The record is a 100-nucleotide RNA sequence from Flavobacterium agri, which matches "SAM riboswitch aptamer (S box leader)" in Rfam.
RNA sequence: UUCUUAUCCAGAAAGGACGAGGGACUUGACCCUGUGACUCCUUGGCAACCUGUCGAAAGAUAAGGUGCCAACUUCAACCCGGAAACGGGAUAGAUAAGUA
Numbered sequence: 001u002u003c004u005u006a007u008c009c010a011g012a013a014a015g016g017a018c019g020a021g022g023g024a025c026u027u028g029a030c031c032c033u034g035u036g037a038c039u040c041c042u043u044g045g046c047a048a049c050c051u052g053u054c055g056a057a058a059g060a061u062a063a064g065g066u067g068c069c070a071a072c073u074u075c076a077a078c079c080c081g082g083a084a085a086c087g088g089g090a091u092a093g094a095u096a097a098g099u100a
Base pairs, nucleotide, nucleotide: 001100003098004097005096006095007094008093013043014042015041016040017039021032022031023030026077027076028075029074044069045068046067047066049065050064051062052061053060054059073092078089079088080087081086

A search with the family's covariance model found it, with a score of 78 bits.